[Rfam]
RNA sequence: CCAACCCAAAUGAAUAUUUUUCAUAUAAUCGCGGGGAUAUGGCCUGCAAGUUUCUACCGGUUUACCGUAAAUAAACCGACUAUGGAAAAGUGCUUAAAAGCU
Numbered sequence: 001c002c003a004a005c006c007c008a009a010a011u012g013a014a015u016a017u018u019u020u021u022c023a024u025a026u027a028a029u030c031g032c033g034g035g036g037a038u039a040u041g042g043c044c045u046g047c048a049a050g051u052u053u054c055u056a057c058c059g060g061u062u063u064a065c066c067g068u069a070a071a072u073a074a075a076c077c078g079a080c081u082a083u084g085g086a087a088a089a090g091u092g093c094u095u096a097a098a099a100g101c102u
Stems, first nucleotide, its partner, number of pairs: 018088008029049001031047005058078007